RNA: THF (Tetrahydrofolate) riboswitch aptamer
Organism: Clostridium tetanomorphum
RNA sequence: GUUAGAGUAGGUGGUUGCGCGUUAAGUGCUAGUGGACGGGAAGUUGCCACUAGACGAAAAAACUCUGUUUGUAAUAUAAAUACGGUUUUGCGAUGCAAUUACCGCAUUCCGCUAAC
Numbered sequence: 001g002u003u004a005g006a007g008u009a010g011g012u013g014g015u016u017g018c019g020c021g022u023u024a025a026g027u028g029c030u031a032g033u034g035g036a037c038g039g040g041a042a043g044u045u046g047c048c049a050c051u052a053g054a055c056g057a058a059a060a061a062a063c064u065c066u067g068u069u070u071g072u073a074a075u076a077u078a079a080a081u082a083c084g085g086u087u088u089u090g091c092g093a094u095g096c097a098a099u100u101a102c103c104g105c106a107u108u109c110c111g112c113u114a115a116c
Base pairs, nucleotide, nucleotide: 001116002115003114004113005112010103011102012101013100014099015098016097017096018095019094020092021091022090026055027054029053030052031051032050033049034048035047039109040108041107043105059089060088061087062086063085064084